[Rfam]
RNA sequence: GCGCUGACGCUAUAUGAUGGAUGGCUAGGCUUGAAGGACGAUGAAGGGCGUGGCAAGCUGCGAUAAGCUUCGGGUAGGCGCAUGCAGCCUUAGAUCCGAAGAUACCCUAAUGGGACUUCCUACUAAAAAGCUUCGGCUUUUUAGUGCUUCCUUUUGGAAGCGUGAACCCUCCGGAGUGAAACAUCUGAGUAGGAGGAGGAAAAAAAAUCAAUUGAGAUUCCCUAAUUAGCGGCGAGCGAAACGGGAUCCAGCCCAAACUGAAUCUGCUAUGGUGACUUAGUAGAGAUGUGGUGUUGUUGUUAACUUUGAGUACUUUAUUAAAUUAGUCGAAAUAAUCUGGAACGAUUUGAUGUAGAGGGUGAUAUCCCCGUAGACUAAUGACGUAAAGACUUUGUUAUUAACUAGAGUACCUGGCCUUGACAAUGGCUAGGGAAGAUGGGGGAAAACAGCCUCCAAGGCUAAAUACCUUUCAAGACCGAUAGUGCAAUAGUACUGUGAAGGAAAGCUGAAAAGUACCCCGGAAGGGGUGUGAAAAGAGUCUGAAAUCAUAUAGUUACAGACG
Numbered sequence: 001g002c003g004c005u006g007a008c009g010c011u012a013u014a015u016g017a018u019g020g021a022u023g024g025c026u027a028g029g030c031u032u033g034a035a036g037g038a039c040g041a042u043g044a045a046g047g048g049c050g051u052g053g054c055a056a057g058c059u060g061c062g063a064u065a066a067g068c069u070u071c072g073g074g075u076a077g078g079c080g081c082a083u084g085c086a087g088c089c090u091u092a093g094a095u096c097c098g099a100a101g102a103u104a105c106c107c108u109a110a111u112g113g114g115a116c117u118u119c120c121u122a123c124u125a126a127a128a129a130g131c132u133u134c135g136g137c138u139u140u141u142u143a144g145u146g147c148u149u150c151c152u153u154u155u156g157g158a159a160g161c162g163u164g165a166a167c168c169c170u171c172c173g174g175a176g177u178g179a180a181a182c183a184u185c186u187g188a189g190u191a192g193g194a195g196g197a198g199g200a201a202a203a204a205a206a207a208u209c210a211a212u213u214g215a216g217a218u219u220c221c222c223u224a225a226u227u228a229g230c231g232g233c234g235a236g237c238g239a240a241a242c243g244g245g246a247u248c249c250a251g252c253c254c255a256a257a258c259u260g261a262a263u264c265u266g267c268u269a270u271g272g273u274g275a276c277u278u279a280g281u282a283g284a285g286a287u288g289u290g291g292u293g294u295u296g297u298u299g300u301u302a303a304c305u306u307u308g309a310g311u312a313c314u315u316u317a318u319u320a321a322a323u324u325a326g327u328c329g330a331a332a333u334a335a336u337c338u339g340g341a342a343c344g345a346u347u348u349g350a351u352g353u354a355g356a357g358g359g360u361g362a363u364a365u366c367c368c369c370g371u372a373g374a375c376u377a378a379u380g381a382c383g384u385a386a387a388g389a390c391u392u393u394g395u396u397a398u399u400a401a402c403u404a405g406a407g408u409a410c411c412u413g414g415c416c417u418u419g420a421c422a423a424u425g426g427c428u429a430g431g432g433a434a435g436a437u438g439g440g441g442g443a444a445a446a447c448a449g450c451c452u453c454c455a456a457g458g459c460u461a462a463a464u465a466c467c468u469u470u471c472a473a474g475a476c477c478g479a480u481a482g483u484g485c486a487a488u489a490g491u492a493c494u495g496u497g498a499a500g501g502a503a504a505g506c507u508g509a510a511a512a513g514u515a516c517c518c519c520g521g522a523a524g525g526g527g528u529g530u531g532a533a534a535a536g537a538g539u540c541u542g543a544a545a546u547c548a549u550a551u552a553g554u555u556a557c558a559g560a561c562g
Stems, first nucleotide, its partner, number of pairs: 009554009023540001024506002028477002030474006036467002045108004049062003068101006077089003112121003147160005167198001168196005178185002208215002219246004229237002250460004258291003268279002271276001301397003310390002313388001326375003332348001334347004351355001357369003410431007438454005493500002
Background
A member of the RNA family "Archaeal large subunit ribosomal RNA" from uncultured marine crenarchaeote AD1000-23-H12, 562 nucleotides of a longer RNA. On this family, see Yusupov et al., Science 2001: "Crystal structure of the ribosome at 5.5 A resolution". Pairs were carried over by alignment from the consensus structure, which is taken from published work.